The family of this 96-nucleotide RNA from Firmicutes bacterium ASF500 is "THF (Tetrahydrofolate) riboswitch aptamer". Rfam links the family to the GO term tetrahydrofolate metabolic process. NCBI's taxonomy places the organism under Bacteria, Bacillati, Bacillota. Rfam 15.1 lists 747 matches to the family in 747 species.
[Rfam]
RNA sequence: GUCAGAGUAGACACAGCGCGUCAAGUGCCAUUGGAUGGGAGGUUGCCAAUGGACGAAGGGACGAAAAGCCCGCGUUGCUGUGCCGCAUCCGCUGCC
Numbered sequence: 001g002u003c004a005g006a007g008u009a010g011a012c013a014c015a016g017c018g019c020g021u022c023a024a025g026u027g028c029c030a031u032u033g034g035a036u037g038g039g040a041g042g043u044u045g046c047c048a049a050u051g052g053a054c055g056a057a058g059g060g061a062c063g064a065a066a067a068g069c070c071c072g073c074g075u076u077g078c079u080g081u082g083c084c085g086c087a088u089c090c091g092c093u094g095c096c
Stems, first nucleotide, its partner, number of pairs: 001096001003094003010084001012082007019074003025054002028052007038090003042086001058071003